Shown here is a 102-nucleotide RNA from Asparagus officinalis, a member of the family "small nucleolar RNA snoR126". NCBI's taxonomy places the organism under Eukaryota, Streptophytina, Euphyllophyta, Petrosaviidae, Asparagus. Gene Ontology terms of the family: nucleolus and RNA processing. The family's RNA type in Rfam is C/D-box small nucleolar RNA. Rfam 15.1 lists 423 matches to the family in 200 species. Pairs were carried over by alignment from the consensus structure, which was predicted with RNAalifold. The match comes from Rfam's covariance-model search (73 bits).
RNA sequence: UGGCUAUGAUGACAAGUAUCAUUUCUCGAUGCUGAUUAUACCAAUUUUUUUUUACAUUUGGGACCAAAUCCUGAUGACUUAAUUUGUGCGUGUCUGAGCCAU
Numbered sequence: 001u002g003g004c005u006a007u008g009a010u011g012a013c014a015a016g017u018a019u020c021a022u023u024u025c026u027c028g029a030u031g032c033u034g035a036u037u038a039u040a041c042c043a044a045u046u047u048u049u050u051u052u053u054a055c056a057u058u059u060g061g062g063a064c065c066a067a068a069u070c071c072u073g074a075u076g077a078c079u080u081a082a083u084u085u086g087u088g089c090g091u092g093u094c095u096g097a098g099c100c101a102u
Stems, first nucleotide, its partner, number of pairs: 001101004